[Rfam]
RNA: uup RNA
Organism: Floricoccus tropicus
RNA sequence: AGAAAAAUAGCUCUUUACAUAAGAUAAUGAUGAAGCAUUGUUGAGAGC
Number, nucleotide and partner (000 for none) at each position: 001a000002g000003a000004a000005a000006a000007a000008u000009a000010g000011c047012u046013c045014u044015u043016u000017a041018c040019a039020u000021a000022a000023g000024a000025u000026a000027a000028u000029g000030a000031u000032g000033a000034a000035g000036c000037a000038u000039u019040g018041u017042u000043g015044a014045g013046a012047g011048c000